[Rfam]
RNA sequence: UCGAAGCUCCAGCGAAAGGAUAAGAUUUGGUCUUAGUGUAUAGGAGGUUUUGAAAAUAGAAUAAUAUAAGGAGCAAUAAACUCUAUCUUGGUCUAUUAAGACGGGGUUUUGCUCUUUU
Dot-bracket structure: .......(((.......)))...............................................(((((((((.(...((..((((........))))..)).).))))))))).
Annotation: Shown here is a 118-nucleotide RNA sequence from Phtheirospermum japonicum, a member of the family "Plastid-psbA-1 3UTR RNA". Rfam classes the family as a cis-regulatory element. A reference for the family is Richter et al. (2023), "Retrograde signaling in plants: A critical review focusing on the GUN pathway and beyond", Plant Commun.